The family of this 75-nucleotide RNA sequence from Providencia rustigianii is "MicA sRNA". The sequence is in the family's curated seed alignment. The base pairs follow the family's consensus structure, which was predicted with WAR. The source organism's lineage runs through Bacteria, Pseudomonadota, Gammaproteobacteria, Providencia and Providencia rustigianii. Rfam classes the family as a small RNA.

RNA sequence: GAAAGACGCGCAAAUUGUUAUCAUCCCUAAUUCUCUAAGAGAUUUUUUAUUUGGCCACUUAAUGUGGCCACUUCU
Number, nucleotide and partner (000 for none) at each position: 001g000002a000003a000004a000005g000006a000007c000008g000009c000010g000011c000012a000013a000014a000015u000016u000017g000018u000019u000020a000021u000022c000023a043024u042025c041026c000027c039028u038029a000030a000031u000032u000033c000034u000035c000036u000037a000038a028039g027040a000041g025042a024043u023044u000045u000046u000047u000048u000049a000050u000051u000052u000053g069054g068055c067056c066057a065058c064059u000060u000061a000062a000063u000064g058065u057066g056067g055068c054069c053070a000071c000072u000073u000074c000075u000